[Rfam]
RNA sequence: CGGAGCUCUUGGCUUUGAGAACUGAAUUCCAAGGGUGUCUGUUUUAUAUUCAGCCCACGGAGUUCAGUUCUUAAAUUUGGAUGCUCAUG
Numbered sequence: 001c002g003g004a005g006c007u008c009u010u011g012g013c014u015u016u017g018a019g020a021a022c023u024g025a026a027u028u029c030c031a032a033g034g035g036u037g038u039c040u041g042u043u044u045u046a047u048a049u050u051c052a053g054c055c056c057a058c059g060g061a062g063u064u065c066a067g068u069u070c071u072u073a074a075a076u077u078u079g080g081a082u083g084c085u086c087a088u089g
Stems, first nucleotide, its partner, number of pairs: 008080002011077002018071008033056004
Dot-bracket structure: .......((.((.....((((((((.......((((................)))).......))))))))....)).)).........